[Rfam]
RNA sequence: AUGCAUCUAUUAUGAAUUGAACUUAUGAAUUCGCCAAUUAUGAGUUGGACGCUUUAAUUGUUCAAUCAUGAAUGC
Number, nucleotide and partner (000 for none) at each position: 001a000002u000003g075004c074005a073006u072007c000008u070009a000010u000011u025012a024013u000014g022015a000016a000017u000018u000019g000020a000021a000022c014023u000024u012025a011026u000027g000028a000029a000030u000031u000032c000033g000034c000035c000036a000037a000038u000039u000040a069041u068042g067043a000044g066045u065046u064047g063048g062049a061050c060051g059052c000053u000054u000055u000056a000057a000058u000059u051060g050061u049062u048063c047064a046065a045066u044067c042068a041069u040070g008071a000072a006073u005074g004075c003
About this RNA
Rfam assigns this 75-nucleotide RNA from Vitis vinifera to the family "Plastid-ycf2 5UTR RNA". The family has 204 seed sequences and 3,521 matches in Rfam 15.1. Rfam classes the family as a cis-regulatory element. Rfam's curators write: Plastid ycf2 is a non-coding RNA (ncRNA) recognised in plastids. The literature on the family includes a 2023 paper in Plant Commun by Richter et al., "Retrograde signaling in plants: A critical review focusing on the GUN pathway and beyond".